[Rfam]
RNA sequence: GGCCUCCUUCUUUGGGGCGAUUGAUUGCGGGGCUCUGCAAUCGAUAGCCCCACAGAGGGAGGCC
Numbered sequence: 001g002g003c004c005u006c007c008u009u010c011u012u013u014g015g016g017g018c019g020a021u022u023g024a025u026u027g028c029g030g031g032g033c034u035c036u037g038c039a040a041u042c043g044a045u046a047g048c049c050c051c052a053c054a055g056a057g058g059g060a061g062g063c064c
Stems, first nucleotide, its partner, number of pairs: 001064011013052006020045011
Description:
The family of this 64-nucleotide RNA sequence from Myotis myotis is "mir-9242 microRNA precursor family". Rfam links the family to the GO terms miRNA-mediated post-transcriptional gene silencing and RISC complex. The family's consensus secondary structure was predicted with RNAalifold.